Annotation:
Rfam assigns this 100-nucleotide RNA from Nelumbo nucifera to the family "Small nucleolar RNA R30/Z108". The organism belongs to Nelumbo, within Eukaryota. About the family: snoR30 is a C/D box small nucleolar RNA which acts as a methylation guide for 18S ribosomal RNA in plants.

RNA sequence: UGAGAUUGCUAUGAGGAUAACAAGCUCCCUCUUCCGAAAUGAAGUUGAGGUCAAAAGCUGGCAGAAUCGAACCAAUUAGUCACACGCCAUCACUGAGCAA
Number, nucleotide and partner (000 for none) at each position: 001u000002g000003a000004g000005a000006u100007u099008g098009c097010u000011a000012u000013g000014a000015g000016g000017a000018u000019a000020a000021c000022a000023a000024g000025c000026u000027c000028c000029c000030u000031c000032u000033u000034c000035c000036g000037a000038a000039a000040u000041g000042a000043a000044g000045u000046u000047g000048a000049g000050g000051u000052c000053a000054a000055a000056a000057g000058c000059u000060g000061g000062c000063a000064g000065a000066a000067u000068c000069g000070a000071a000072c000073c000074a000075a000076u000077u000078a000079g000080u000081c000082a000083c000084a000085c000086g000087c000088c000089a000090u000091c000092a000093c000094u000095g000096a000097g009098c008099a007100a006
About this RNA
The family is grouped with related families in Rfam's "SNORD100 clan". A search with the family's covariance model found it, with a score of 75 bits.